[Rfam]
RNA sequence: CCACCUUUUAAAAAAAGUCCAGAGAGGCUUUCAAGGGUGUAUGAACAAUUAGUGCAGAAAUUCUAGGGCAGGAGUGCAUCCCCCUACAUUCAUGCUGCAGGAAAUUGUUCACAAAACACCCUGAUCCUCUCGAUCAGGGUGUUUUUUUAU
Dot-bracket structure: ..((((((.....((((((......)))))).))))))....((((((((....................................................))))))))..((((((((((((((.....)))))))))))))).....
Numbered sequence: 001c002c003a004c005c006u007u008u009u010a011a012a013a014a015a016a017g018u019c020c021a022g023a024g025a026g027g028c029u030u031u032c033a034a035g036g037g038u039g040u041a042u043g044a045a046c047a048a049u050u051a052g053u054g055c056a057g058a059a060a061u062u063c064u065a066g067g068g069c070a071g072g073a074g075u076g077c078a079u080c081c082c083c084c085u086a087c088a089u090u091c092a093u094g095c096u097g098c099a100g101g102a103a104a105u106u107g108u109u110c111a112c113a114a115a116a117c118a119c120c121c122u123g124a125u126c127c128u129c130u131c132g133a134u135c136a137g138g139g140u141g142u143u144u145u146u147u148u149a150u
Stems, first nucleotide, its partner, number of pairs: 003038006014031006043110008113145014